[Rfam]
Rfam assigns this 45-nucleotide RNA sequence from Lentivirus simimdef to the family "ribosomal frameshift site". The literature on the family includes a 1987 paper in Nature by Guyader et al., "Genome organization and transactivation of the human immunodeficiency virus type 2".
RNA sequence: UUUGGACCUUGGGGAAAGAAGCCUCGCAACUUCCCCAUGGCCCAG
Numbered sequence: 001u002u003u004g005g006a007c008c009u010u011g012g013g014g015a016a017a018g019a020a021g022c023c024u025c026g027c028a029a030c031u032u033c034c035c036c037a038u039g040g041c042c043c044a045g
Stems, first nucleotide, its partner, number of pairs: 002044001004042002008039001010037007018030001021027002

Notes: Taxonomically the source falls in Lentivirus simimdef (Viruses, Riboviria, Pararnavirae, Revtraviricetes). Gene Ontology term of the family: viral translational frameshifting.